[Rfam]
RNA sequence: CGGGUGGGGUCCGCACGGUCUGCCCGGAGGAUUCAACCCGGCGGGUCCGGUCGGCCCGGUCGGUGCGCGUGGAUCCCCUUCGGUGGGGACCGCCGCCCGGCCGUUGGCUCGGCCGCCGUCGGGCGCACUUCUUCCGAGGCGGUGCGCCGCGACCGGCUCCGGUUUGGCCAGGAAGGGUCGGGGGGCGAAGGUGGCUCGCAGCCUCCGGGUCGCGAGCUUUACAGAGCCCCCACGCUCCGACUUUGCCGCUUACCCCCGGGGUCGUGGGCAGUGUCCUCGCGCCUUCUCUCCUCCCGACGGGGGAGGGACGGGGCCCCUCGCUCCCGGUGUGUGCGUCGACCGGGGCGGACUGUCCUCAGUCCGUCUCCGACCGCGCCGCGCCGUCAGGGCGGGGAUCAGGCCCUCGUAAAGGGUGCUCGAGGUCCGCGGCGAGGUCGGCCACCCACCCGACCCGUCUUGAAACACGG
Numbered sequence: 001c002g003g004g005u006g007g008g009g010u011c012c013g014c015a016c017g018g019u020c021u022g023c024c025c026g027g028a029g030g031a032u033u034c035a036a037c038c039c040g041g042c043g044g045g046u047c048c049g050g051u052c053g054g055c056c057c058g059g060u061c062g063g064u065g066c067g068c069g070u071g072g073a074u075c076c077c078c079u080u081c082g083g084u085g086g087g088g089a090c091c092g093c094c095g096c097c098c099g100g101c102c103g104u105u106g107g108c109u110c111g112g113c114c115g116c117c118g119u120c121g122g123g124c125g126c127a128c129u130u131c132u133u134c135c136g137a138g139g140c141g142g143u144g145c146g147c148c149g150c151g152a153c154c155g156g157c158u159c160c161g162g163u164u165u166g167g168c169c170a171g172g173a174a175g176g177g178u179c180g181g182g183g184g185g186c187g188a189a190g191g192u193g194g195c196u197c198g199c200a201g202c203c204u205c206c207g208g209g210u211c212g213c214g215a216g217c218u219u220u221a222c223a224g225a226g227c228c229c230c231c232a233c234g235c236u237c238c239g240a241c242u243u244u245g246c247c248g249c250u251u252a253c254c255c256c257c258g259g260g261g262u263c264g265u266g267g268g269c270a271g272u273g274u275c276c277u278c279g280c281g282c283c284u285u286c287u288c289u290c291c292u293c294c295c296g297a298c299g300g301g302g303g304a305g306g307g308a309c310g311g312g313g314c315c316c317c318u319c320g321c322u323c324c325c326g327g328u329g330u331g332u333g334c335g336u337c338g339a340c341c342g343g344g345g346c347g348g349a350c351u352g353u354c355c356u357c358a359g360u361c362c363g364u365c366u367c368c369g370a371c372c373g374c375g376c377c378g379c380g381c382c383g384u385c386a387g388g389g390c391g392g393g394g395a396u397c398a399g400g401c402c403c404u405c406g407u408a409a410a411g412g413g414u415g416c417u418c419g420a421g422g423u424c425c426g427c428g429g430c431g432a433g434g435u436c437g438g439c440c441a442c443c444c445a446c447c448c449g450a451c452c453c454g455u456c457u458u459g460a461a462a463c464a465c466g467g
Stems, first nucleotide, its partner, number of pairs: 001449008009440001011438002020141001023138001025136007146430006452467004
RNA: Eukaryotic large subunit ribosomal RNA, nucleotides 433 to 899
Organism: Onychostoma macrolepis